[Rfam]
RNA: TPP riboswitch aptamer (THI element)
RNA sequence: CAGAAAUCCCAGGGGGGCUGGUGUUACCAGCUGAGAGUAAAAAUAUUAAUUUUUAGACCCUAUAACCUGAUCUGGAUAAUACCAGCGUAGGAAGAGGCUUUAUAUAAUUAA
Numbered sequence: 001c002a003g004a005a006a007u008c009c010c011a012g013g014g015g016g017g018c019u020g021g022u023g024u025u026a027c028c029a030g031c032u033g034a035g036a037g038u039a040a041a042a043a044u045a046u047u048a049a050u051u052u053u054u055a056g057a058c059c060c061u062a063u064a065a066c067c068u069g070a071u072c073u074g075g076a077u078a079a080u081a082c083c084a085g086c087g088u089a090g091g092a093a094g095a096g097g098c099u100u101u102a103u104a105u106a107a108u109u110a111a
Stems, first nucleotide, its partner, number of pairs: 006099001008097002011061004017031005039053004066091004072085004